[Rfam]
RNA sequence: AAUGUCUGUCGCUGAUCACUACCCCUCCCCUGGUGUGAUCCAGGAACAGUCCGGUUCUCCCCAACCGGCGUUCCAAGCCCGGCCCCGCAGUCCCCCCUGGCUGCGGGGCUUUUUU
Numbered sequence: 001a002a003u004g005u006c007u008g009u010c011g012c013u014g015a016u017c018a019c020u021a022c023c024c025c026u027c028c029c030c031u032g033g034u035g036u037g038a039u040c041c042a043g044g045a046a047c048a049g050u051c052c053g054g055u056u057c058u059c060c061c062c063a064a065c066c067g068g069c070g071u072u073c074c075a076a077g078c079c080c081g082g083c084c085c086c087g088c089a090g091u092c093c094c095c096c097c098u099g100g101c102u103g104c105g106g107g108g109c110u111u112u113u114u115u
Base pairs, nucleotide, nucleotide: 004012006011014040015039016038017037018036019035021034022033023032043074044073045072046071047070049069051068052067053066054065055064081110082109083108084107085106086105087104088103090101091100092099
Description:
The record is a 115-nucleotide RNA from Thermomonas sp. HDW16, which matches "Xanthomonadaceae sRNA sX13" in Rfam. Lineage of the source: Bacteria > Pseudomonadati > Pseudomonadota > Gammaproteobacteria > Thermomonas. By type it is a small RNA. Pairs were carried over by alignment from the consensus structure, which was predicted with CMfinder.